[Rfam]
RNA: Pseudomonas sRNA P18
Organism: Pseudomonas sp. GD03985
RNA sequence: GGCGGCGUGCUGCUCAGCCCAAUGUUCGCCUACGCGCUGCUGGCGCUGCUGCUGACCGGCCUGCUGCGCCUGGGCCUGCAGCGGGCCGGGCUGGCGCGCUGGAUCUGGCACGAGGCGCUGUUCGACUGCGCCCUG
Number, nucleotide and partner (000 for none) at each position: 001g000002g067003c066004g065005g064006c063007g062008u000009g060010c059011u058012g052013c051014u000015c048016a047017g046018c045019c043020c042021a041022a000023u039024g000025u000026u000027c000028g000029c000030c000031u000032a000033c000034g000035c000036g000037c000038u000039g023040c000041u021042g020043g019044c000045g018046c017047u016048g015049c000050u000051g013052c012053u000054g000055a000056c000057c000058g011059g010060c009061c000062u007063g006064c005065u004066g003067c002068g133069c000070c000071u000072g000073g000074g000075c000076c096077u000078g000079c093080a092081g091082c000083g000084g000085g000086c000087c000088g000089g000090g000091c081092u080093g079094g000095c000096g076097c000098g131099c130100u000101g000102g127103a000104u125105c124106u000107g000108g121109c120110a119111c000112g000113a000114g000115g000116c000117g000118c000119u110120g109121u108122u000123c000124g105125a104126c000127u102128g000129c000130g099131c098132c000133c068134u000135g000